Background:
A member of the RNA family "THF (Tetrahydrofolate) riboswitch aptamer" from Peptoniphilus sp. oral taxon 386, 87 nucleotides long. A reference for the family is Ames et al. (2010), "A eubacterial riboswitch class that senses the coenzyme tetrahydrofolate", Chem Biol.

RNA sequence: AACAGAGUAGAUAAAGAGCGUCAAGUGUUAAGAAAUGGGUUGUUGUUCUUAAACGAAUUUAUAUGAUUCUUUAUCGCGGCCGCUGUA
Numbered sequence: 001a002a003c004a005g006a007g008u009a010g011a012u013a014a015a016g017a018g019c020g021u022c023a024a025g026u027g028u029u030a031a032g033a034a035a036u037g038g039g040u041u042g043u044u045g046u047u048c049u050u051a052a053a054c055g056a057a058u059u060u061a062u063a064u065g066a067u068u069c070u071u072u073a074u075c076g077c078g079g080c081c082g083c084u085g086u087a
Stems, first nucleotide, its partner, number of pairs: 002086004010075009019065003025054002028052007038081005
About the family: Tetrahydrofolate (THF) riboswitch was first reported for Ames et al. as an RNA motif in 5' untranslated (5'-UTR)regions of folate transport and biosynthesis genes in Firmicutes genomes.
It scores 60 bits against the family's covariance model.
Pairs were carried over by alignment from the consensus structure, which is taken from published work.